[Rfam]
RNA: Small nucleolar RNA SNORA75
Organism: Nannospalax galili
RNA sequence: GUCUUCUCAUUGUGCUCCUUUCUGUCAACUGGUGGCAGGUUAUGGACUUGCACGAAAAGAAGAGUUCACAGAACUAGCGUUACCUUACCUUCUGUUUUUACAGAGUAUGUUUGGCAAUUGUGUGAGACAUUC
Numbered sequence: 001g002u003c004u005u006c007u008c009a010u011u012g013u014g015c016u017c018c019u020u021u022c023u024g025u026c027a028a029c030u031g032g033u034g035g036c037a038g039g040u041u042a043u044g045g046a047c048u049u050g051c052a053c054g055a056a057a058a059g060a061a062g063a064g065u066u067c068a069c070a071g072a073a074c075u076a077g078c079g080u081u082a083c084c085u086u087a088c089c090u091u092c093u094g095u096u097u098u099u100a101c102a103g104a105g106u107a108u109g110u111u112u113g114g115c116a117a118u119u120g121u122g123u124g125a126g127a128c129a130u131u132c
Base pairs, nucleotide, nucleotide: 003059004058005057007055008054014051015050016046017045018044022038023037024036025035026034066125067124068123069122070121090105091104092103093102094101
Dot-bracket structure: ..(((.((.....(((((...(((((.......))))).....)))...))..)).)))......(((((...................(((((......)))))...............))))).......